[Rfam]
RNA sequence: UUCACAGGUGUGAUCAUCCUUGCCUGCUUCUCCUUUGGAGGGCGGAGUUCGUGAUGACUAGAGUUCACGUGCUAUGUGAUUAACUCUGCCUCAUCAGGAUUUGUAACAUCCUAAUUGCUCUACCUGAU
Numbered sequence: 001u002u003c004a005c006a007g008g009u010g011u012g013a014u015c016a017u018c019c020u021u022g023c024c025u026g027c028u029u030c031u032c033c034u035u036u037g038g039a040g041g042g043c044g045g046a047g048u049u050c051g052u053g054a055u056g057a058c059u060a061g062a063g064u065u066c067a068c069g070u071g072c073u074a075u076g077u078g079a080u081u082a083a084c085u086c087u088g089c090c091u092c093a094u095c096a097g098g099a100u101u102u103g104u105a106a107c108a109u110c111c112u113a114a115u116u117g118c119u120c121u122a123c124c125u126g127a128u
Base pairs, nucleotide, nucleotide: 024045025044026043028042029041030040031039032038033037071089072088076084077082091117093115094114096112097111098110
The record is a 128-nucleotide RNA sequence from Saimiri boliviensis, which matches "U8 small nucleolar RNA" in Rfam. Pairs were carried over by alignment from the consensus structure, which is taken from published work. The organism belongs to Saimiri boliviensis, within Eukaryota. Its family is annotated with nucleolus and RNA processing in the Gene Ontology. By type it is a C/D-box small nucleolar RNA. On this family, see Hokii et al., Nucleic Acids Res 2010: "A small nucleolar RNA functions in rRNA processing in Caenorhabditis elegans".